[Rfam]
A member of the RNA family "Guanidine-I riboswitch aptamer" from Cohnella sp. CIP 111063, 110 nucleotides long. The source organism's lineage runs through Bacteria, Bacillota, Caryophanales, Paenibacillaceae and Cohnella.

RNA sequence: GGAAUAGGCCCCUAGGGUUCCACGGCGCGUCGAGCGCCGGUUCGGUCCGAGAGGGGCGCAUCCGCCCUUAAGAGGCAGGAUGGACACGGAGGGAUAAAAGCCCGGGAGUA
Numbered sequence: 001g002g003a004a005u006a007g008g009c010c011c012c013u014a015g016g017g018u019u020c021c022a023c024g025g026c027g028c029g030u031c032g033a034g035c036g037c038c039g040g041u042u043c044g045g046u047c048c049g050a051g052a053g054g055g056g057c058g059c060a061u062c063c064g065c066c067c068u069u070a071a072g073a074g075g076c077a078g079g080a081u082g083g084a085c086a087c088g089g090a091g092g093g094a095u096a097a098a099a100g101c102c103c104g105g106g107a108g109u110a
Base pairs, nucleotide, nucleotide: 008057009056010055011054012053015048016047020045021044022042023039024038025037026036027035028034059083060081061080062079063078064076065075066074085105087108091103092102093101
A reference for the family is Nelson et al. (2017), "Metabolism of Free Guanidine in Bacteria Is Regulated by a Widespread Riboswitch Class", Mol Cell. The pairing is the family consensus, mapped onto this sequence.